A member of the RNA family "Mammalian CPEB3 ribozyme" from Crocodylus porosus, 76 nucleotides long.
The family has 14 seed sequences and 5,706 matches in Rfam 15.1.
[Rfam]
RNA sequence: UGGUCACAGUUCAAGGCCAUAGCAGAAGUGCUCAUGGCAUGGCCUGUUAGAAUCUAAGAAAUCUGCAAAUUCUGCU
Numbered sequence: 001u002g003g004u005c006a007c008a009g010u011u012c013a014a015g016g017c018c019a020u021a022g023c024a025g026a027a028g029u030g031c032u033c034a035u036g037g038c039a040u041g042g043c044c045u046g047u048u049a050g051a052a053u054c055u056a057a058g059a060a061a062u063c064u065g066c067a068a069a070u071u072c073u074g075c076u
Stems, first nucleotide, its partner, number of pairs: 015044004021076007028040003048065004053060001